Ribosomal protein L20 leader: a 122-nucleotide sequence from Aceticella autotrophica.

RNA sequence: AAGGAAAAGUAGAAGCACCCGCUUCUCACCUUUCACCUACGGGGGUGUCGGGUCAGUCAAAAGGUUUGUUUUUUGUACUUAUGAUUUAUGAGGCGGGGUUAUACCCGCUUUUAUUUUGCCAA
Numbered sequence: 001a002a003g004g005a006a007a008a009g010u011a012g013a014a015g016c017a018c019c020c021g022c023u024u025c026u027c028a029c030c031u032u033u034c035a036c037c038u039a040c041g042g043g044g045g046u047g048u049c050g051g052g053u054c055a056g057u058c059a060a061a062a063g064g065u066u067u068g069u070u071u072u073u074u075g076u077a078c079u080u081a082u083g084a085u086u087u088a089u090g091a092g093g094c095g096g097g098g099u100u101a102u103a104c105c106c107g108c109u110u111u112u113a114u115u116u117u118g119c120c121a122a
Stems, first nucleotide, its partner, number of pairs: 011026006028053003034047002036044002092109006

Rfam's curators write: This family is a putative r-protein leader autoregulatory structure found in B. subtilis and other low-GC Gram-positive bacteria.
It scores 70 bits against the family's covariance model.
A reference for the family is Zengel and Lindahl (1994), "Diverse mechanisms for regulating ribosomal protein synthesis in Escherichia coli", Prog Nucleic Acid Res Mol Biol.